[Rfam]
RNA sequence: UGGCGGGUUAAAGUCCCGUCCGGGGAAUUGCUCAUUCACCCUGGUAGUACUGUGGAGCAGUAUUUGAGUAAUUGAAUGCUGUAAGUUCCGCGAAGGCAAAGCUGCAGGCCGCAACGCAA
Number, nucleotide and partner (000 for none) at each position: 001u000002g000003g000004c000005g000006g000007g000008u000009u000010a000011a000012a000013g000014u000015c000016c000017c000018g000019u000020c044021c043022g042023g041024g040025g000026a000027a000028u000029u000030g000031c000032u000033c000034a000035u000036u000037c000038a000039c000040c024041c023042u022043g021044g020045u000046a000047g000048u000049a000050c000051u000052g091053u090054g089055g088056a087057g082058c081059a080060g079061u078062a077063u000064u000065u000066g073067a072068g000069u000070a000071a000072u067073u066074g000075a000076a000077u062078g061079c060080u059081g058082u057083a000084a000085g000086u000087u056088c055089c054090g053091c052092g000093a000094a000095g000096g112097c111098a000099a000100a000101g000102c000103u000104g000105c000106a000107g000108g000109c000110c000111g097112c096113a000114a000115c000116g000117c000118a000119a000

This 119-nucleotide RNA from Nitrosomonas sp. Nm51 belongs to the Rfam family "Group II catalytic intron D1-D4-4". Rfam links the family to the GO term Group II intron splicing. A reference for the family is Chu et al. (2001), "Control of branch-site choice by a group II intron", EMBO J. NCBI's taxonomy places the organism under Bacteria, Pseudomonadati, Pseudomonadota, Nitrosomonadaceae, Nitrosomonas. Group II introns are found in rRNA, tRNA and mRNA of organelles in fungi, plants and protists, and also in mRNA in bacteria. Rfam 15.1 lists 840 matches to the family in 506 species.